Description
Shown here is a 92-nucleotide RNA from Veillonella criceti, a member of the family "SAM riboswitch aptamer (S box leader)". Lineage of the source: Bacteria > Bacillati > Bacillota > Veillonellales > Veillonella. The family has 457 seed sequences and 9,625 matches in Rfam 15.1.
[Rfam]
RNA sequence: AUAUUAUCUAGAGUGAUGGAGGGACUGGCCCUAUGAAAUCCGGCAACCAUUCGAUGGUGCUAAUUCCUGCGGCAUAUACCGAGAGAUAACAA
Numbered sequence: 001a002u003a004u005u006a007u008c009u010a011g012a013g014u015g016a017u018g019g020a021g022g023g024a025c026u027g028g029c030c031c032u033a034u035g036a037a038a039u040c041c042g043g044c045a046a047c048c049a050u051u052c053g054a055u056g057g058u059g060c061u062a063a064u065u066c067c068u069g070c071g072g073c074a075u076a077u078a079c080c081g082a083g084a085g086a087u088a089a090c091a092a
Stems, first nucleotide, its partner, number of pairs: 002091001004089005013041001015040003021031003025069001027067002042061004047057002065084001070081003